[Rfam]
RNA sequence: GAAAUACCUCAGGACCUGACCGUCCGGUGAGUUGCGCUUAUCCCUUGCGUAAGGUAUUUCUCUCUCCUUGUUAAUAUGGAGGGUUUGAAGGCUGAGUCUACCACAACUGUGGGGAUAAAUUGUAACUUCCAGCAAACAGUGAUG
Dot-bracket structure: (((((((((..((((......)))).......(((((.........)))))))))))))).(((((............))))).......((((..(((.(((......))))))..............))))...........
The record is a 144-nucleotide RNA sequence from Tombusvirus necropelargonii, which matches "Tombusvirus 5' UTR" in Rfam.
By type it is a cis-regulatory element.